RNA sequence: GAAGUAAUGGCUGAGUGGUUAAAGCGGCAGACUGUAAAUCUGUUGGUAGUACCGUCGUUGGUUCGAAUCCAACUUACUUCA
Numbered sequence: 001g002a003a004g005u006a007a008u009g010g011c012u013g014a015g016u017g018g019u020u021a022a023a024g025c026g027g028c029a030g031a032c033u034g035u036a037a038a039u040c041u042g043u044u045g046g047u048a049g050u051a052c053c054g055u056c057g058u059u060g061g062u063u064c065g066a067a068u069c070c071a072a073c074u075u076a077c078u079u080c081a
Stems, first nucleotide, its partner, number of pairs: 001080007010025003027043005057073005
tRNA: an 81-nucleotide RNA sequence from Paramecium tetraurelia. It is annotated as a transfer RNA. Rfam describes the family as follows. Transfer RNA (tRNA) molecules are approximately 80 nucleotides in length. The base pairs follow the family's consensus structure, which is taken from published work.